[Rfam]
RNA sequence: CCUUCCGAGGAGCGCUGCAACCCACCCUGGAUUCUCAAAUGGAUCAUCAAGGGCAAGGGCCAGGCUCGGAAGCUGGAGCCCCAACAAUUACAACGGCGCUCACUCACG
Numbered sequence: 001c002c003u004u005c006c007g008a009g010g011a012g013c014g015c016u017g018c019a020a021c022c023c024a025c026c027c028u029g030g031a032u033u034c035u036c037a038a039a040u041g042g043a044u045c046a047u048c049a050a051g052g053g054c055a056a057g058g059g060c061c062a063g064g065c066u067c068g069g070a071a072g073c074u075g076g077a078g079c080c081c082c083a084a085c086a087a088u089u090a091c092a093a094c095g096g097c098g099c100u101c102a103c104u105c106a107c108g
Base pairs, nucleotide, nucleotide: 002072003071004070005069006068007067008066021059022058023057
RNA: SAH (S-adenosyl-L-homocysteine) riboswitch aptamer
Organism: Thiorhodovibrio frisius